[Rfam]
RNA sequence: UAGCCCUUUUAAUGGCAGUCCAGAGAGGCUGACAAAGGGAGAGUUAGGCAUGGCUUUACUAUGCCUUCAUACCCUCUUUGUGCCCUCAAGCCGAAGAGGGUUUUUUAUU
Numbered sequence: 001u002a003g004c005c006c007u008u009u010u011a012a013u014g015g016c017a018g019u020c021c022a023g024a025g026a027g028g029c030u031g032a033c034a035a036a037g038g039g040a041g042a043g044u045u046a047g048g049c050a051u052g053g054c055u056u057u058a059c060u061a062u063g064c065c066u067u068c069a070u071a072c073c074c075u076c077u078u079u080g081u082g083c084c085c086u087c088a089a090g091c092c093g094a095a096g097a098g099g100g101u102u103u104u105u106u107a108u109u
Stems, first nucleotide, its partner, number of pairs: 004039006016031005047065007069103001071101010
RNA: PyrR binding site
Organism: Bacillus sp. cl95